Shown here is an 86-nucleotide sequence from Gouania willdenowi, a member of the family "mir-135 microRNA precursor family".
On this family, see Kim et al., Proc Natl Acad Sci U S A 2004: "Identification of many microRNAs that copurify with polyribosomes in mammalian neurons".
RNA sequence: UUCCUACUGCACUGUAUGGCUUUUUAUUCCUAUCUGACUGUUGUGAUAUUUCAUAUAGGGAUGGAAGCCAUGCACUGCGCUGGGAG
Dot-bracket structure: .(((((.((((.(((((((((((..((((((((.(((.............))).)))))))).))))))))))).)))).))))).
Numbered sequence: 001u002u003c004c005u006a007c008u009g010c011a012c013u014g015u016a017u018g019g020c021u022u023u024u025u026a027u028u029c030c031u032a033u034c035u036g037a038c039u040g041u042u043g044u045g046a047u048a049u050u051u052c053a054u055a056u057a058g059g060g061a062u063g064g065a066a067g068c069c070a071u072g073c074a075c076u077g078c079g080c081u082g083g084g085a086g
Stems, first nucleotide, its partner, number of pairs: 002085005008079004013074011026062008035053003